[Rfam]
RNA sequence: CUACGGACUUGAUUGGAUUGAGCCUUGGUAUGGAAACCUACUAAGUGAUAGCUUUCAAAUUCAGAGAAACCCUGGAAUUAAAAAUGGGCAAUCCUGAGCCAAAUCCUGGUUUCAUAAAACGAGAAUAAACAAAGAAUAGGUGCAGAGACUCAACGGAAGUUGUUCUAACGAAUGGAGUUGACUGGGUUGGUAGAGGAUUCCUUCUAUAGAAACUUGAGAAAGGAAGUCCCUCUAUACAUAGUUGAAGGAAGAAUUUAAUAUUCACUGAUCAAAUCAAUCACUCCAUAAUCUGAUAGAUCUUUUGAAAAACUGACUCAUCGGAUGAGAAUAAAGAUAGAGUCCCAUUCUACAUGUCAAUAUCAA
Numbered sequence: 001c002u003a004c005g006g007a008c009u010u011g012a013u014u015g016g017a018u019u020g021a022g023c024c025u026u027g028g029u030a031u032g033g034a035a036a037c038c039u040a041c042u043a044a045g046u047g048a049u050a051g052c053u054u055u056c057a058a059a060u061u062c063a064g065a066g067a068a069a070c071c072c073u074g075g076a077a078u079u080a081a082a083a084a085u086g087g088g089c090a091a092u093c094c095u096g097a098g099c100c101a102a103a104u105c106c107u108g109g110u111u112u113c114a115u116a117a118a119a120c121g122a123g124a125a126u127a128a129a130c131a132a133a134g135a136a137u138a139g140g141u142g143c144a145g146a147g148a149c150u151c152a153a154c155g156g157a158a159g160u161u162g163u164u165c166u167a168a169c170g171a172a173u174g175g176a177g178u179u180g181a182c183u184g185g186g187u188u189g190g191u192a193g194a195g196g197a198u199u200c201c202u203u204c205u206a207u208a209g210a211a212a213c214u215u216g217a218g219a220a221a222g223g224a225a226g227u228c229c230c231u232c233u234a235u236a237c238a239u240a241g242u243u244g245a246a247g248g249a250a251g252a253a254u255u256u257a258a259u260a261u262u263c264a265c266u267g268a269u270c271a272a273a274u275c276a277a278u279c280a281c282u283c284c285a286u287a288a289u290c291u292g293a294u295a296g297a298u299c300u301u302u303u304g305a306a307a308a309a310c311u312g313a314c315u316c317a318u319c320g321g322a323u324g325a326g327a328a329u330a331a332a333g334a335u336a337g338a339g340u341c342c343c344a345u346u347c348u349a350c351a352u353g354u355c356a357a358u359a360u361c362a363a
Stems, first nucleotide, its partner, number of pairs: 005024001008022006050161005056155001061097004066092001070088003098141002104135002111129002114126002145342001147341005163328004168323001349360001351358002

Source information: A member of the RNA family "Group I catalytic intron" from Kingdonia uniflora, 363 nucleotides long. It scores 146 bits against the family's covariance model. A reference for the family is Cech (1990), "Self-splicing of group I introns", Annu Rev Biochem. The base pairs follow the family's consensus structure, which is taken from published work. Rfam links the family to the GO term Group I intron splicing. Group I catalytic introns are large self-splicing ribozymes. They catalyse their own excision from mRNA, tRNA and rRNA precursors in a wide range of organisms. The core secondary structure consists of 9 paired regions (P1-P9). These fold to essentially two domains - the P4-P6 domain (formed from the stacking of P5, P4, P6 and P6a helices) and the P3-P9 domain (formed from the P8, P3, P7 and P9 helices). NCBI's taxonomy places the organism under Eukaryota, Viridiplantae, Streptophytina, Mesangiospermae, Kingdonia.